[Rfam]
RNA sequence: UAAUAAAGACAUAAAAAGAGCCGGUGUUGCAAUCACCAGCCCUUCUAUGUAGAGCCGUUUAAGACGGUGACGUAGGGUUACUAUUAAAUA
Numbered sequence: 001u002a003a004u005a006a007a008g009a010c011a012u013a014a015a016a017a018g019a020g021c022c023g024g025u026g027u028u029g030c031a032a033u034c035a036c037c038a039g040c041c042c043u044u045c046u047a048u049g050u051a052g053a054g055c056c057g058u059u060u061a062a063g064a065c066g067g068u069g070a071c072g073u074a075g076g077g078u079u080a081c082u083a084u085u086a087a088a089u090a
Stems, first nucleotide, its partner, number of pairs: 023037004054068006

Rfam assigns this 90-nucleotide RNA sequence from Bombilactobacillus mellis to the family "RNA anti-toxin A". NCBI's taxonomy places the organism under Bacteria, Bacillota, Bacilli, Lactobacillaceae, Bombilactobacillus. Gene Ontology terms of the family: negative regulation of translation and mRNA binding. By type it is an antitoxin RNA. The family's consensus secondary structure was predicted with RNAalifold. A search with the family's covariance model found it, with a score of 55 bits.